[Rfam]
Nucleotides: 135
Base pairs, nucleotide, nucleotide: 028056029055030054031053032052034045035044036043098121099120100119101118102117103116104115106113107112
Number, partner (000 for none) and nucleotide at each position: 001000u002000a003000a004000g005000c006000a007000a008000a009000u010000a011000g012000u013000g014000u015000a016000a017000a018000g019000c020000c021000g022000u023000a024000g025000a026000c027000a028056g029055u030054a031053g032052g033000u034045g035044u036043g037000a038000g039000u040000u041000u042000u043036c044035a045034c046000a047000u048000a049000a050000a051000u052032c053031c054030u055029a056028c057000c058000g059000a060000g061000g062000u063000g064000a065000a066000g067000u068000g069000u070000g071000a072000u073000a074000c075000a076000c077000a078000u079000g080000g081000g082000c083000g084000a085000a086000g087000u088000g089000u090000g091000u092000a093000u094000g095000u096000a097000a098121g099120g100119c101118c102117u103116u104115c105000a106113u107112a108000u109000g110000u111000c112107u113106a114000c115104g116103a117102a118101g119100g120099c121098u122000u123000u124000u125000u126000u127000c128000u129000a130000u131000u132000u133000u134000a135000u